The record is a 104-nucleotide RNA sequence from Mycobacterium sherrisii, which matches "mraW RNA" in Rfam. A search with the family's covariance model found it, with a score of 73 bits. The base pairs follow the family's consensus structure, which is taken from published work. NCBI's taxonomy places the organism under Bacteria, Actinomycetota, Mycobacteriaceae, Mycobacterium, Mycobacterium simiae complex. Rfam classes the family as a cis-regulatory element.
RNA sequence: GCAUGCCCGUGCAUCGUGGCCUCUGCCCGAACCGACCCUGGCGUACUUCCCCAACGCCUGGUUCGUAGUUUCGGACAGGGACCUCGGUGCAGGGGCGCGUCCUU
Dot-bracket structure: .........(((((((.((.(((((.(((((.(((.((.(((((.........))))).)).)))....))))).))))).)).))))))).............